[Rfam]
RNA sequence: CAUUUUGUCAGAGGGGAGUAACUUAAGAAUCAUGACCGUAUAAAUGAUUCGACACUUUAUCGUCAUUACGAAGAUAUCUUCCGGUAAAGUGGGCAAUUUAAAUUGCUU
Numbered sequence: 001c002a003u004u005u006u007g008u009c010a011g012a013g014g015g016g017a018g019u020a021a022c023u024u025a026a027g028a029a030u031c032a033u034g035a036c037c038g039u040a041u042a043a044a045u046g047a048u049u050c051g052a053c054a055c056u057u058u059a060u061c062g063u064c065a066u067u068a069c070g071a072a073g074a075u076a077u078c079u080u081c082c083g084g085u086a087a088a089g090u091g092g093g094c095a096a097u098u099u100a101a102a103u104u105g106c107u108u
Base pairs, nucleotide, nucleotide: 027050028049029048030047031046032045033044053091054090055089056088057087058086059085060084061083062082070081071080072079073078092107093106094105095104096103097102
The family of this 108-nucleotide RNA sequence from Staphylococcus aureus is "Manganese Mn2+ riboswitch aptamer (yybP-ykoY)". The family has 29 seed sequences and 1,126 matches in Rfam 15.1. The match comes from Rfam's covariance-model search (54 bits).